This 111-nucleotide sequence from Priestia megaterium belongs to the Rfam family "BsrF". Lineage of the source: Bacteria > Bacilli > Caryophanales > Priestia > Priestia megaterium. Pairs were carried over by alignment from the consensus structure, which was predicted with WAR.
[Rfam]
Nucleotides: 111
Stems, first nucleotide, its partner, number of pairs: 014080005024074002028071004034043002048067002051064003089111009
Number, partner (000 for none) and nucleotide at each position: 001000g002000c003000g004000a005000u006000g007000a008000g009000c010000u011000a012000a013000u014080u015079u016078g017077u018076g019000u020000a021000a022000g023000u024074c025073g026000a027000a028071g029070g030069a031068c032000a033000u034043g035042c036000u037000u038000u039000c040000g041000a042035g043034c044000u045000a046000a047000a048067c049066g050000u051064g052063u053062g054000a055000a056000u057000g058000u059000g060000g061000u062053c063052a064051c065000a066049c067048g068031g069030u070029c071028c072000c073025c074024g075000c076018c077017a078016c079015a080014a081000a082000c083000g084000c085000a086000u087000c088000a089111a090110a091109g092108a093107c094106g095105u096104c097103c098000u099000a100000c101000g102000u103097g104096g105095a106094c107093g108092u109091c110090u111089u